[Rfam]
RNA sequence: GCAAGUGACACGGGGUGCCGCGCAUAGGCGGCUGAGAUGAGACCCGUCGAACCUGAUCCAGUUCGUACUGGCGAAGGGAAUGUCCGAAUGUCUUACC
Numbered sequence: 001g002c003a004a005g006u007g008a009c010a011c012g013g014g015g016u017g018c019c020g021c022g023c024a025u026a027g028g029c030g031g032c033u034g035a036g037a038u039g040a041g042a043c044c045c046g047u048c049g050a051a052c053c054u055g056a057u058c059c060a061g062u063u064c065g066u067a068c069u070g071g072c073g074a075a076g077g078g079a080a081u082g083u084c085c086g087a088a089u090g091u092c093u094u095a096c097c
Base pairs, nucleotide, nucleotide: 007084008083009082010081011046012045013044014043016040017032018031019030020029021028052077053076054075058071059070060069061068
RNA: TPP riboswitch aptamer (THI element)
Organism: Bifidobacterium subtile